[Rfam]
RNA sequence: CGGUAACAAACACAUACACCUCAUAUAACCACGGGAAUAUGGCCCGUAAGUCUCUACCCAAUCACCGUAAACGAUUGGACUAUGAGGGAAGUUACACUAUGG
Numbered sequence: 001c002g003g004u005a006a007c008a009a010a011c012a013c014a015u016a017c018a019c020c021u022c023a024u025a026u027a028a029c030c031a032c033g034g035g036a037a038u039a040u041g042g043c044c045c046g047u048a049a050g051u052c053u054c055u056a057c058c059c060a061a062u063c064a065c066c067g068u069a070a071a072c073g074a075u076u077g078g079a080c081u082a083u084g085a086g087g088g089a090a091g092u093u094a095c096a097c098u099a100u101g102g
Base pairs, nucleotide, nucleotide: 019087020086021085022084023083024082025081031047032046033045034044035043058078059077060076061075062074063073
Shown here is a 102-nucleotide RNA sequence from Pontibacillus halophilus, a member of the family "Purine riboswitch aptamer".
Rfam describes the family as follows. Riboswitches are metabolite binding domains within certain messenger RNAs that serve as precision sensors for their corresponding targets.
The organism belongs to Pontibacillus halophilus, within Bacteria.
A search with the family's covariance model found it, with a score of 83 bits.